Rfam assigns this 81-nucleotide RNA sequence from Roseburia zhanii to the family "ZMP/ZTP riboswitch aptamer (pfl RNA motif)". Gene Ontology terms of the family: regulation of purine nucleotide biosynthetic process and one-carbon metabolic process. Taxonomically the source falls in Roseburia (Bacteria, Bacillati, Clostridia, Lachnospiraceae).
RNA sequence: AAUCCGUCAUAUGACUGACGGAAAGUAACGAUUAUUAUAUGAACUAUAACUGAUACAAUGCCGACCGUCUGGGCAAUAUGC
Number, nucleotide and partner (000 for none) at each position: 001a000002a000003u053004c052005c000006g050007u049008c000009a047010u046011a045012u000013g000014a000015c041016u000017g069018a068019c067020g066021g065022a000023a000024a000025g038026u037027a036028a035029c000030g000031a000032u000033u000034a000035u028036u027037a026038u025039a000040u000041g015042a000043a000044c000045u011046a010047u009048a000049a007050c006051u000052g004053a003054u000055a000056c000057a000058a000059u075060g074061c073062c072063g000064a000065c021066c020067g019068u018069c017070u000071g000072g062073g061074c060075a059076a000077u000078a000079u000080g000081c000